[Rfam]
RNA: Bacterial RNase P class A
RNA sequence: AAUGCAAAUCGCUCUAUCGCUGUUUCGAUUUAUCGGAAGAGAGGAAAGUCCGGGCAACACAGGGCAGCUUGCUUCCUAACGGGAAGGCAUCUUGUAAUAAAGGUGACAGAAAGUACUACAGAAAAUAAACUACCCCGAGUAAUUGGGGAAAAGGUGAAAACGUGAGGUAAGAGCUCACGACUUUGUAUGGCGACAUGCAUCGUGGUAAACCUCAGGCGUUGAAAGACCAAAUAAAUCCCGAACGUCAAGGCGGCCCGUCUUGCUGUUUUUAGAAACUAUCGGGAAGGGUAGGUCGUUAGAUCAUAACAGCAAUGUUAUGGCAAGAUAAAUGAUAGAGGAAUCCUGUAGAAAUACAGGAUUACAGAACCCGGCUUAUAAAUUUGCAUUUAUU
Numbered sequence: 001a002a003u004g005c006a007a008a009u010c011g012c013u014c015u016a017u018c019g020c021u022g023u024u025u026c027g028a029u030u031u032a033u034c035g036g037a038a039g040a041g042a043g044g045a046a047a048g049u050c051c052g053g054g055c056a057a058c059a060c061a062g063g064g065c066a067g068c069u070u071g072c073u074u075c076c077u078a079a080c081g082g083g084a085a086g087g088c089a090u091c092u093u094g095u096a097a098u099a100a101a102g103g104u105g106a107c108a109g110a111a112a113g114u115a116c117u118a119c120a121g122a123a124a125a126u127a128a129a130c131u132a133c134c135c136c137g138a139g140u141a142a143u144u145g146g147g148g149a150a151a152a153g154g155u156g157a158a159a160a161c162g163u164g165a166g167g168u169a170a171g172a173g174c175u176c177a178c179g180a181c182u183u184u185g186u187a188u189g190g191c192g193a194c195a196u197g198c199a200u201c202g203u204g205g206u207a208a209a210c211c212u213c214a215g216g217c218g219u220u221g222a223a224a225g226a227c228c229a230a231a232u233a234a235a236u237c238c239c240g241a242a243c244g245u246c247a248a249g250g251c252g253g254c255c256c257g258u259c260u261u262g263c264u265g266u267u268u269u270u271a272g273a274a275a276c277u278a279u280c281g282g283g284a285a286g287g288g289u290a291g292g293u294c295g296u297u298a299g300a301u302c303a304u305a306a307c308a309g310c311a312a313u314g315u316u317a318u319g320g321c322a323a324g325a326u327a328a329a330u331g332a333u334a335g336a337g338g339a340a341u342c343c344u345g346u347a348g349a350a351a352u353a354c355a356g357g358a359u360u361a362c363a364g365a366a367c368c369c370g371g372c373u374u375a376u377a378a379a380u381u382u383g384c385a386u387u388u389a390u391u
Base pairs, nucleotide, nucleotide: 001387002386003385004384005383006382007381008380009379011376012337013336014335015334016333017332018331020041021040023038024037025036026035027034028033046374047373048372050371051370052369053368054367055221056220057219058218067217068216069215070214071213072086073085074084075083076082087107088105089104090103091102092101093100108212109211113210114209115206116205117204130153131152133148134147135146136145137144138143161179162178163177164176165175166174184199185198186197187196188195189194225294226293227292228291236284237283238282239281240280264278265277267275268274301320302319303318304317305316306315307314308313